[Rfam]
RNA sequence: GGGUGCGCGGUCCGUCGUUCGGAUCGGCAGGUUGAGCGCUGGUCGGGCCGCCAGCG
Dot-bracket structure: ....((.(((((.........)))))))........(((((((......)))))))
Shown here is a 56-nucleotide RNA sequence from Methylobacterium radiotolerans, a member of the family "nhaA-I RNA". The source organism's lineage runs through Bacteria, Pseudomonadati, Hyphomicrobiales, Methylobacterium and Methylobacterium radiotolerans. It is one of the family's seed sequences. Rfam's curators write: Acidobacteria, Alphaproteobacteria, Betaproteobacteria and Gammaproteobacteria, Verrucomicrobia, cand. division NC10. The family's consensus secondary structure is taken from published work. The family's RNA type in Rfam is riboswitch.